The record is a 400-nucleotide sequence from Chlamydia pneumoniae, which matches "Bacterial RNase P class A" in Rfam.
RNA sequence: CGGAAGAGAAAGGCAACCGCUGUUUAUAUUUCUCAAAAAAUAUAAAGAGAGGAAAGUCUGGACUUCAUAAGAGAAGAUACUGGAGAAAUUCCAGGGGCCGUAAGGCUACGGAAAGUGCAACAGAAAACACUCCGCUAUAAAAUUUAUUUUAUAGACAGGCUGAAAAUUCCUACUUUAGGAGUAGGAGCCAUUAAGGUGACUUAAUAGGCAUGCAAACCCUAUCUGAAGCAAGAGAAAAAAGCUUUUUGUGUCUGCAAAUGUGAGAGGAAUUCCUCCCAUAGGCUUUUUCGAAAUCGCUUGAGGGAUCUAGUAAUAGCUCCCCUAGAUGAAUGGUUGCCCUUAGGAUAGUUCGCAAGAGCUAUCUUAUAGACAGAAUCCAGCUUACCCUCUCUUCCGAUAU
Numbered sequence: 001c002g003g004a005a006g007a008g009a010a011a012g013g014c015a016a017c018c019g020c021u022g023u024u025u026a027u028a029u030u031u032c033u034c035a036a037a038a039a040a041u042a043u044a045a046a047g048a049g050a051g052g053a054a055a056g057u058c059u060g061g062a063c064u065u066c067a068u069a070a071g072a073g074a075a076g077a078u079a080c081u082g083g084a085g086a087a088a089u090u091c092c093a094g095g096g097g098c099c100g101u102a103a104g105g106c107u108a109c110g111g112a113a114a115g116u117g118c119a120a121c122a123g124a125a126a127a128c129a130c131u132c133c134g135c136u137a138u139a140a141a142a143u144u145u146a147u148u149u150u151a152u153a154g155a156c157a158g159g160c161u162g163a164a165a166a167u168u169c170c171u172a173c174u175u176u177a178g179g180a181g182u183a184g185g186a187g188c189c190a191u192u193a194a195g196g197u198g199a200c201u202u203a204a205u206a207g208g209c210a211u212g213c214a215a216a217c218c219c220u221a222u223c224u225g226a227a228g229c230a231a232g233a234g235a236a237a238a239a240a241g242c243u244u245u246u247u248g249u250g251u252c253u254g255c256a257a258a259u260g261u262g263a264g265a266g267g268a269a270u271u272c273c274u275c276c277c278a279u280a281g282g283c284u285u286u287u288u289c290g291a292a293a294u295c296g297c298u299u300g301a302g303g304g305a306u307c308u309a310g311u312a313a314u315a316g317c318u319c320c321c322c323u324a325g326a327u328g329a330a331u332g333g334u335u336g337c338c339c340u341u342a343g344g345a346u347a348g349u350u351c352g353c354a355a356g357a358g359c360u361a362u363c364u365u366a367u368a369g370a371c372a373g374a375a376u377c378c379a380g381c382u383u384a385c386c387c388u389c390u391c392u393u394c395c396g397a398u399a400u
Stems, first nucleotide, its partner, number of pairs: 001396009012338007020049002023046009054383003058380005063228004071272003075224005080094005095109001096107004110219002115217002117213003132159002135154008168186006187209001188207001190205006232295002237287006266276003302321004307316003
Rfam's curators put it in the seed alignment. By type it is a ribozyme.